RNA sequence: GUCGGCGUCGUCAGCAUCAAACCCACUGGCGUGCCCGUGACCGUCGAAUUGCCGGGUCGCGUGAGCGCGCAUCUCGUCGCUGAAGUGCGAGCGCGUGUCGACGGCAUCGUGCUGAAGCGCGCGUUCACGGAAGGCAGCGAAGUCAAGGCAGGACAGACGCUCUACAAGAUCGA
Numbered sequence: 001g002u003c004g005g006c007g008u009c010g011u012c013a014g015c016a017u018c019a020a021a022c023c024c025a026c027u028g029g030c031g032u033g034c035c036c037g038u039g040a041c042c043g044u045c046g047a048a049u050u051g052c053c054g055g056g057u058c059g060c061g062u063g064a065g066c067g068c069g070c071a072u073c074u075c076g077u078c079g080c081u082g083a084a085g086u087g088c089g090a091g092c093g094c095g096u097g098u099c100g101a102c103g104g105c106a107u108c109g110u111g112c113u114g115a116a117g118c119g120c121g122c123g124u125u126c127a128c129g130g131a132a133g134g135c136a137g138c139g140a141a142g143u144c145a146a147g148g149c150a151g152g153a154c155a156g157a158c159g160c161u162c163u164a165c166a167a168g169a170u171c172g173a
Stems, first nucleotide, its partner, number of pairs: 003054005008047003011043001015039002018037001022033001023031001056149003059143002067135002072133001074131002078093004094121002097118001102114005158172002160168002
Burkholderia RNA 14: a 173-nucleotide sequence from Paraburkholderia steynii. A reference for the family is Ramos et al. (2013), "Experimental identification of small non-coding regulatory RNAs in the opportunistic human pathogen Burkholderia cenocepacia J2315", Genomics. From the family's description: Co-purified with Hfq, expression confirmed by Northern blot. Putative functional homologue of PA-SraF. Overlaps coding sequence. Its family is annotated with protein binding in the Gene Ontology. Rfam classes the family as a small RNA.